The record is a 98-nucleotide RNA from Gossypium mustelinum, which matches "MIR390 microRNA precursor family" in Rfam. Taxonomically the source falls in Gossypium (Eukaryota, Embryophyta, Pentapetalae, Malvales). The family's consensus secondary structure was predicted with WAR. It scores 98 bits against the family's covariance model. Rfam links the family to the GO terms RISC complex and miRNA-mediated post-transcriptional gene silencing.

[Rfam]
RNA sequence: UAGAAGAAUCUGUUAAGCUCAGGAGGGAUAGCGCCAUGGAUGAUCUUCAGCCUGAUCCUCAUUAGCGCUAUCUAUCCUGAGUUACAUGGCUUCUUCUU
Numbered sequence: 001u002a003g004a005a006g007a008a009u010c011u012g013u014u015a016a017g018c019u020c021a022g023g024a025g026g027g028a029u030a031g032c033g034c035c036a037u038g039g040a041u042g043a044u045c046u047u048c049a050g051c052c053u054g055a056u057c058c059u060c061a062u063u064a065g066c067g068c069u070a071u072c073u074a075u076c077c078u079g080a081g082u083u084a085c086a087u088g089g090c091u092u093c094u095u096c097u098u
Stems, first nucleotide, its partner, number of pairs: 010089001016083009026073009